Shown here is a 38-nucleotide RNA, a member of the family "DUF805b RNA". Rfam classes the family as a cis-regulatory element. The family's consensus secondary structure is taken from published work.
RNA sequence: AAGGGGUAAUACCGAAAACCCUAGAAAUAGAGUAGGUA
Number, nucleotide and partner (000 for none) at each position: 001a000002a022003g021004g020005g019006g000007u000008a000009a000010u000011a037012c036013c035014g000015a000016a000017a000018a000019c005020c004021c003022u002023a000024g000025a000026a000027a000028u000029a000030g000031a000032g000033u000034a000035g013036g012037u011038a000